[Rfam]
RNA sequence: ACCAAGGCGCACUAGGGUUCCGGUUGCUCAUGCGAGCGAUGGCUGGUCCGAGAGUGCGCCGGCUUCGCGCAUUGCGAGGCUCCACGGAGGGAUAAAAGCCCGGGAGAG
Numbered sequence: 001a002c003c004a005a006g007g008c009g010c011a012c013u014a015g016g017g018u019u020c021c022g023g024u025u026g027c028u029c030a031u032g033c034g035a036g037c038g039a040u041g042g043c044u045g046g047u048c049c050g051a052g053a054g055u056g057c058g059c060c061g062g063c064u065u066c067g068c069g070c071a072u073u074g075c076g077a078g079g080c081u082c083c084a085c086g087g088a089g090g091g092a093u094a095a096a097a098g099c100c101c102g103g104g105a106g107a108g
Base pairs, nucleotide, nucleotide: 007059008058009057010056011055012054015049016048020046021045022043023040024039025038026037027036028035061081062080063079064078065077066076067075068074083103085106089101090100091099